[Rfam]
RNA sequence: AAAAACAGUGGUGAUGAAACUCGCCUUCUGGAAUAACCAGAGAACCGCCCUCAUGGCUGAUAGUUUCUAGUUCGAC
Numbered sequence: 001a002a003a004a005a006c007a008g009u010g011g012u013g014a015u016g017a018a019a020c021u022c023g024c025c026u027u028c029u030g031g032a033a034u035a036a037c038c039a040g041a042g043a044a045c046c047g048c049c050c051u052c053a054u055g056g057c058u059g060a061u062a063g064u065u066u067c068u069a070g071u072u073c074g075a076c
Stems, first nucleotide, its partner, number of pairs: 010025004016067006047057003
Dot-bracket structure: .........[[[[..((((((]]]].....................(((.....)))....)))))).........
The family of this 76-nucleotide sequence from Brasilonema sennae is "Fluoride riboswitch aptamer (crcB RNA motif)". The match comes from Rfam's covariance-model search (35 bits). The source organism's lineage runs through Bacteria, Bacillati, Nostocales, Bromeliae group (in: Brasilonema) and Brasilonema sennae. The base pairs follow the family's consensus structure, which is taken from published work.